[Rfam]
RNA sequence: GACCUAACCCCUAUGUUUUCAUAAGGUAUGGUUAAAAAUCCUAUCCUACAUAAAAAUGGUUUUCCAACCAGUACUUGUAGGAUAGGUCUAUGCUCGAAAGGGUGUAGUGGCAUUUUCGCAAGGACUUGUC
Numbered sequence: 001g002a003c004c005u006a007a008c009c010c011c012u013a014u015g016u017u018u019u020c021a022u023a024a025g026g027u028a029u030g031g032u033u034a035a036a037a038a039u040c041c042u043a044u045c046c047u048a049c050a051u052a053a054a055a056a057u058g059g060u061u062u063u064c065c066a067a068c069c070a071g072u073a074c075u076u077g078u079a080g081g082a083u084a085g086g087u088c089u090a091u092g093c094u095c096g097a098a099a100g101g102g103u104g105u106a107g108u109g110g111c112a113u114u115u116u117c118g119c120a121a122g123g124a125c126u127u128g129u130c
Base pairs, nucleotide, nucleotide: 001033002032003031004030009026010025012023013022014021015020040086041085042084043083044082045081046080047079048078049077050076055072057070058069059068060067088107089106090105091104092103093102094101095100109130110129111128112127
RNA: LOOT RNA